[Rfam]
RNA sequence: GUGUGAAAUGAUGGUAUCAUCUUUCGGGACUGACCUGUCAUGGAGACUACCCUUUCAACUGAUCACAC
Dot-bracket structure: ((((((........................................................))))))
About this RNA
A member of the RNA family "Small nucleolar RNA SNORD2" from Triplophysa tibetana, 68 nucleotides long. A search with the family's covariance model found it, with a score of 70 bits. Rfam links the family to the GO terms RNA processing and nucleolus. Lineage of the source: Eukaryota > Metazoa > Neopterygii > Cobitoidei > Triplophysa. The family's RNA type in Rfam is C/D-box small nucleolar RNA.